[Rfam]
RNA: Gammaprotebacteria rimP leader
Organism: Saliniradius amylolyticus
RNA sequence: AAGGUAGUAUAGUGGACAAGGGUCCAGAGAUAAAAAGCCCCGCUUGUACGGGGCUUUUUGUUAUUCCUCAGAAACUGCGCCGAUGCCAGGCAUCGGGGCUGACAGUCUAACGGGGCAACCCGAAAUGAGGUCUGGGCGUUUACGCCCUUUUUUU
Numbered sequence: 001a002a003g004g005u006a007g008u009a010u011a012g013u014g015g016a017c018a019a020g021g022g023u024c025c026a027g028a029g030a031u032a033a034a035a036a037g038c039c040c041c042g043c044u045u046g047u048a049c050g051g052g053g054c055u056u057u058u059u060g061u062u063a064u065u066c067c068u069c070a071g072a073a074a075c076u077g078c079g080c081c082g083a084u085g086c087c088a089g090g091c092a093u094c095g096g097g098g099c100u101g102a103c104a105g106u107c108u109a110a111c112g113g114g115g116c117a118a119c120c121c122g123a124a125a126u127g128a129g130g131u132c133u134g135g136g137c138g139u140u141u142a143c144g145c146c147c148u149u150u151u152u153u154u
Stems, first nucleotide, its partner, number of pairs: 034057009134147004